[Rfam]
RNA: glmS glucosamine-6-phosphate activated ribozyme aptamer
RNA sequence: UUUUGUUUAAAAGCGCCAGGACUAUUUUCCGUUCGGAAGAGAAAAUAGUUGACGAGGAAGAAGGUUAUCGAAGUUAUCGGCGGGUGCCUUCCGAUUGUACAUCUCAAUCGUUGGCUUUUUUCACUAAAACAAUGAGGUAACUCGUUGCACAAAGGGAAAAAGCAAGAUGUAU
Numbered sequence: 001u002u003u004u005g006u007u008u009a010a011a012a013g014c015g016c017c018a019g020g021a022c023u024a025u026u027u028u029c030c031g032u033u034c035g036g037a038a039g040a041g042a043a044a045a046u047a048g049u050u051g052a053c054g055a056g057g058a059a060g061a062a063g064g065u066u067a068u069c070g071a072a073g074u075u076a077u078c079g080g081c082g083g084g085u086g087c088c089u090u091c092c093g094a095u096u097g098u099a100c101a102u103c104u105c106a107a108u109c110g111u112u113g114g115c116u117u118u119u120u121u122c123a124c125u126a127a128a129a130c131a132a133u134g135a136g137g138u139a140a141c142u143c144g145u146u147g148c149a150c151a152a153a154g155g156g157a158a159a160a161a162g163c164a165a166g167a168u169g170u171a172u
Stems, first nucleotide, its partner, number of pairs: 020050008029041001060091005068080004092110006116162007130147007